Shown here is a 72-nucleotide RNA sequence from Lynx canadensis, a member of the family "Small nucleolar RNA SNORD113/SNORD114 family". By type it is a C/D-box small nucleolar RNA. The match comes from Rfam's covariance-model search (46 bits). About the family: The imprinted human domain at 14q32 contains two clusters of tandemly repeated small nucleolar RNAs named 14q(I) and 14q(II) snoRNAs. These two clusters are named SNORD113 and SNORD114 respectively in the HGNC approved gene symbol nomenclature. The snoRNAs found in both clusters are clearly related and are represented here by a single family. These snoRNAs are intron encoded and are processed from the tissue-specific non-coding human MEG8 RNA, which lies downstream of the imprinted genes DLK1 and GTL2. snoRNAs 14q(I) and 14q(II) differ from previously identified C/D box snoRNAs in their expression profiles and lack of complementarity to rRNA and snRNA. Homologues of these snoRNAs are found in the imprinted non-coding mouse transcript Rian, and in the rat non-coding Bsr (brain-specific repetitive) RNA.
[Rfam]
RNA sequence: UGGACCACUGAUGACCACUGGUGGCGAAUGAGUCAUAGCUGAUGUCCAUUCCUUCUGUUUGACGUGGUUCAA
Numbered sequence: 001u002g003g004a005c006c007a008c009u010g011a012u013g014a015c016c017a018c019u020g021g022u023g024g025c026g027a028a029u030g031a032g033u034c035a036u037a038g039c040u041g042a043u044g045u046c047c048a049u050u051c052c053u054u055c056u057g058u059u060u061g062a063c064g065u066g067g068u069u070c071a072a
Base pairs, nucleotide, nucleotide: 002070003069004068005067006066007065008064